[Rfam]
Nucleotides: 055
Stems, first nucleotide, its partner, number of pairs: 013044001014042003020037006
Number, partner (000 for none) and nucleotide at each position: 001000u002000a003000u004000a005000u006000a007000u008000u009000a010000a011000a012000a013044u014042g015041u016040a017000a018000g019000u020037c021036g022035c023034u024033u025032u026000g027000g028000a029000u030000a031000a032025a033024a034023a035022g036021c037020g038000u039000c040016u041015g042014c043000u044013a045000a046000a047000u048000g049000c050000a051000u052000a053000u054000a055000u
The family of this 55-nucleotide RNA from Carassius auratus is "UnaL2 LINE 3' element". The match comes from Rfam's covariance-model search (57 bits). The family's consensus secondary structure is taken from published work. The family's RNA type in Rfam is cis-regulatory element.